[Rfam]
RNA sequence: CGGCUCUUCCUAUCCAUUUUAAGCAGAAUUGAAAAAUAGUAUGAUUGUUCACCAUUCAAUAGGGAACGUGAGCUGGGUUUAGACCGUCGUGAGACAGGUUAGUU
Numbered sequence: 001c002g003g004c005u006c007u008u009c010c011u012a013u014c015c016a017u018u019u020u021a022a023g024c025a026g027a028a029u030u031g032a033a034a035a036a037u038a039g040u041a042u043g044a045u046u047g048u049u050c051a052c053c054a055u056u057c058a059a060u061a062g063g064g065a066a067c068g069u070g071a072g073c074u075g076g077g078u079u080u081a082g083a084c085c086g087u088c089g090u091g092a093g094a095c096a097g098g099u100u101a102g103u104u
Base pairs, nucleotide, nucleotide: 001076002074003073004072005071006068007065008064009063010062011061014039017034018033019032020031021030022029041055042054043053045051082100083099084098085097086095087094088093
The family of this 104-nucleotide part of an RNA from Entamoeba invadens is "Eukaryotic large subunit ribosomal RNA". NCBI's taxonomy places the organism under Eukaryota, Amoebozoa, Evosea, Endamoebidae, Entamoeba. It is one of the family's seed sequences. For this family Rfam cites "Crystal structure of the ribosome at 5.5 A resolution" (Yusupov et al., Science, 2001). Gene Ontology terms of the family: ribosome and structural constituent of ribosome.